[Rfam]
RNA sequence: GCGGGGCUGCGGGGUGCGUUAGGGGUCUUAAUCCCCGGGGCCUUAUCGAUCCUGAAGGGAGCUGUCCCUGUGCGGGCCCGUGGGCCCGCGCAUAUGGCGCCCACCUACCAUGGUAGGGAACCCGGGAUCGCGAACCCCGACGGCUUUUGCGGCUCCGCA
Numbered sequence: 001g002c003g004g005g006g007c008u009g010c011g012g013g014g015u016g017c018g019u020u021a022g023g024g025g026u027c028u029u030a031a032u033c034c035c036c037g038g039g040g041c042c043u044u045a046u047c048g049a050u051c052c053u054g055a056a057g058g059g060a061g062c063u064g065u066c067c068c069u070g071u072g073c074g075g076g077c078c079c080g081u082g083g084g085c086c087c088g089c090g091c092a093u094a095u096g097g098c099g100c101c102c103a104c105c106u107a108c109c110a111u112g113g114u115a116g117g118g119a120a121c122c123c124g125g126g127a128u129c130g131c132g133a134a135c136c137c138c139g140a141c142g143g144c145u146u147u148u149g150c151g152g153c154u155c156c157g158c159a
Base pairs, nucleotide, nucleotide: 002157003156004155005154006153007152008151009150010149011148012146013145014144015143017142018141019140032127033126034125035124037122038121041118042117057102058101059100061098062097063096064095065094070091071090072089073088074087075086076085077084078083
The family of this 159-nucleotide RNA from Rhodoplanes sp. is "6S / SsrS RNA". Taxonomically the source falls in Rhodoplanes (Bacteria, Pseudomonadota, Hyphomicrobiales, Nitrobacteraceae). The family's RNA type in Rfam is non-coding RNA gene. The family has 150 seed sequences and 5,006 matches in Rfam 15.1. About the family: E. coli 6S RNA was the first non coding RNA to be sequenced, but its function was unknown until recently. It consists of 184 nucleotides that fold into an extended hairpin structure with a large single-stranded internal bulge. The 6S RNA specifically associates with RNA polymerase holoenzyme containing the sigma70 specificity factor. This interaction represses expression from a sigma70-dependent promoter during stationary phase. 6S RNA homologs have recently been identified in most bacterial genomes.